[Rfam]
Shown here is a 219-nucleotide RNA sequence from Drosophila persimilis, a member of the family "U12 minor spliceosomal RNA". By type it is a spliceosomal small nuclear RNA. The match comes from Rfam's covariance-model search (56 bits).
RNA sequence: GUGCCUGAAAUUAAUGAGUAAGGAAAACCAAUCCGCCUUGCUAAUCGCUUGGUAGUAUUUGGCUUCUAGGCAAAGGGGCGGCCCUCAGAAGCCGCUCCCUUGAGGCCUAAAUUUUUGCACGGGCACAGGUCGCCCCCUGCUUUGCCGGCACGGCCCCUCCCAUUUGGCGGCAGGAACCGGCACCUACUUUUGUGUCGGGGAGCGCUGCUGGAUGGGGGG
Numbered sequence: 001g002u003g004c005c006u007g008a009a010a011u012u013a014a015u016g017a018g019u020a021a022g023g024a025a026a027a028c029c030a031a032u033c034c035g036c037c038u039u040g041c042u043a044a045u046c047g048c049u050u051g052g053u054a055g056u057a058u059u060u061g062g063c064u065u066c067u068a069g070g071c072a073a074a075g076g077g078g079c080g081g082c083c084c085u086c087a088g089a090a091g092c093c094g095c096u097c098c099c100u101u102g103a104g105g106c107c108u109a110a111a112u113u114u115u116u117g118c119a120c121g122g123g124c125a126c127a128g129g130u131c132g133c134c135c136c137c138u139g140c141u142u143u144g145c146c147g148g149c150a151c152g153g154c155c156c157c158u159c160c161c162a163u164u165u166g167g168c169g170g171c172a173g174g175a176a177c178c179g180g181c182a183c184c185u186a187c188u189u190u191u192g193u194g195u196c197g198g199g200g201a202g203c204g205c206u207g208c209u210g211g212a213u214g215g216g217g218g219g
Stems, first nucleotide, its partner, number of pairs: 004023003008019001033055001035053003040048001062106005154219005161210002165207005179196005